[Rfam]
This 375-nucleotide RNA sequence from Anaerohalosphaera lusitana belongs to the Rfam family "Bacterial RNase P class A".

RNA sequence: UGAGUGGGCCGAGCAGUCGCCGGCUGAGAUAUGCCGGAGGAAAGUCCGAGCAGGACAGGGCACGGUGGUGGCUAACGGCCACCCGGGGUGACCCGCGGGAAAGUGCCGCAGAAAAGAUACGGCCUAUGGAUCGGUUCGCCGGUCCAGGUAAAGGUGAAAUGGUGCGGUAAGAGCGCACCGCGACGGCGGUGACGUCGUCGGCAGGGCAAACCCCACCGCCUGCAAGACCAAGCAGUUGUCAGGUCGGCCCGGCCGAUGGCAACGGGUAGGUCGCUUCCUUUCGGGGAGAGCCGGCUGGUAACGGUCGGUCAAGUUAAAUGACUGCUGCCCGGUGAGAAUCGGGAACAGAACUCGGCUUACAGGCCCACUCGUUUU
Numbered sequence: 001u002g003a004g005u006g007g008g009c010c011g012a013g014c015a016g017u018c019g020c021c022g023g024c025u026g027a028g029a030u031a032u033g034c035c036g037g038a039g040g041a042a043a044g045u046c047c048g049a050g051c052a053g054g055a056c057a058g059g060g061c062a063c064g065g066u067g068g069u070g071g072c073u074a075a076c077g078g079c080c081a082c083c084c085g086g087g088g089u090g091a092c093c094c095g096c097g098g099g100a101a102a103g104u105g106c107c108g109c110a111g112a113a114a115a116g117a118u119a120c121g122g123c124c125u126a127u128g129g130a131u132c133g134g135u136u137c138g139c140c141g142g143u144c145c146a147g148g149u150a151a152a153g154g155u156g157a158a159a160u161g162g163u164g165c166g167g168u169a170a171g172a173g174c175g176c177a178c179c180g181c182g183a184c185g186g187c188g189g190u191g192a193c194g195u196c197g198u199c200g201g202c203a204g205g206g207c208a209a210a211c212c213c214c215a216c217c218g219c220c221u222g223c224a225a226g227a228c229c230a231a232g233c234a235g236u237u238g239u240c241a242g243g244u245c246g247g248c249c250c251g252g253c254c255g256a257u258g259g260c261a262a263c264g265g266g267u268a269g270g271u272c273g274c275u276u277c278c279u280u281u282c283g284g285g286g287a288g289a290g291c292c293g294g295c296u297g298g299u300a301a302c303g304g305u306c307g308g309u310c311a312a313g314u315u316a317a318a319u320g321a322c323u324g325c326u327g328c329c330c331g332g333u334g335a336g337a338a339u340c341g342g343g344a345a346c347a348g349a350a351c352u353c354g355g356c357u358u359a360c361a362g363g364c365c366c367a368c369u370c371g372u373u374u375u
Stems, first nucleotide, its partner, number of pairs: 001371010011360001012326007020037005042358003046355005051222004058250004063218005068082005083097001084095004098213002103211002105207003120153001122149003127146008161179006180202001181200008226272004235263006243253003290309008
It is annotated as a ribozyme. NCBI's taxonomy places the organism under Bacteria, Planctomycetota, Sedimentisphaerales, Anaerohalosphaeraceae, Anaerohalosphaera. The match comes from Rfam's covariance-model search (275 bits).